[Rfam]
RNA: mir-2765 microRNA precursor family
Organism: Papilio machaon
RNA sequence: GACGUAACUGGGCCUGGUAACUCCACCACCGUUGGCGUGACGUUACACCGCCAACGGGGGCAGAGUUCCUUCUCCUAGUUGCGAG
Numbered sequence: 001g002a003c004g005u006a007a008c009u010g011g012g013c014c015u016g017g018u019a020a021c022u023c024c025a026c027c028a029c030c031g032u033u034g035g036c037g038u039g040a041c042g043u044u045a046c047a048c049c050g051c052c053a054a055c056g057g058g059g060g061c062a063g064a065g066u067u068c069c070u071u072c073u074c075c076u077a078g079u080u081g082c083g084a085g
Stems, first nucleotide, its partner, number of pairs: 003083010016070002019067005026060002029057009